The record is a 173-nucleotide RNA sequence from Halosegnis rubeus, which matches "Sense overlapping transcript RNA 0042 (sot)" in Rfam. The family has 2 seed sequences and 196 matches in Rfam 15.1. It is associated with IS1341-type transposase (tnpB) genes, at the 3'-end in H. salinarum NRC-1. The tetraloop structural motif may be functional. NCBI's taxonomy places the organism under Archaea, Methanobacteriota, Halobacteriales, Natronomonadaceae, Halosegnis.
RNA sequence: AAGAUAACUCCGAGUCCGCACGGCGCAGAUAGGAGUACCGGCUGUGUGGCACAGCCAUCGACACACCUGUUCGACUGCGAGAGUGGGACGUUCACCACGAGAGAACAGGCCGUGUCGUAGACAGGCAAAUAUCCCACCUGCGGGACGGGAAGCCUCGCCGUUUACGGCGAGGA
Numbered sequence: 001a002a003g004a005u006a007a008c009u010c011c012g013a014g015u016c017c018g019c020a021c022g023g024c025g026c027a028g029a030u031a032g033g034a035g036u037a038c039c040g041g042c043u044g045u046g047u048g049g050c051a052c053a054g055c056c057a058u059c060g061a062c063a064c065a066c067c068u069g070u071u072c073g074a075c076u077g078c079g080a081g082a083g084u085g086g087g088a089c090g091u092u093c094a095c096c097a098c099g100a101g102a103g104a105a106c107a108g109g110c111c112g113u114g115u116c117g118u119a120g121a122c123a124g125g126c127a128a129a130u131a132u133c134c135c136a137c138c139u140g141c142g143g144g145a146c147g148g149g150a151a152g153c154c155u156c157g158c159c160g161u162u163u164a165c166g167g168c169g170a171g172g173a
Stems, first nucleotide, its partner, number of pairs: 003039001008035004014030003018024002040056005059117006066109007085098001087096001132150004138144001153172008